[Rfam]
RNA sequence: UGAAAACAACAACAAAUCCCACAUAUAUGCUAGAGGAUUGGCUCUAGUGUCUCUACCCAGCACCGGAAGGCUGGACUAUGAGGGAAGCAACGAGUCUU
Numbered sequence: 001u002g003a004a005a006a007c008a009a010c011a012a013c014a015a016a017u018c019c020c021a022c023a024u025a026u027a028u029g030c031u032a033g034a035g036g037a038u039u040g041g042c043u044c045u046a047g048u049g050u051c052u053c054u055a056c057c058c059a060g061c062a063c064c065g066g067a068a069g070g071c072u073g074g075a076c077u078a079u080g081a082g083g084g085a086a087g088c089a090a091c092g093a094g095u096c097u098u
Stems, first nucleotide, its partner, number of pairs: 018084003022080004029048007057074005
Dot-bracket structure: .................(((.((((...(((((((......)))))))........(((((........)))))..)))).)))..............
Rfam assigns this 98-nucleotide RNA from Kurthia sibirica to the family "Purine riboswitch aptamer".
Gene Ontology term of the family: purine nucleobase biosynthetic process.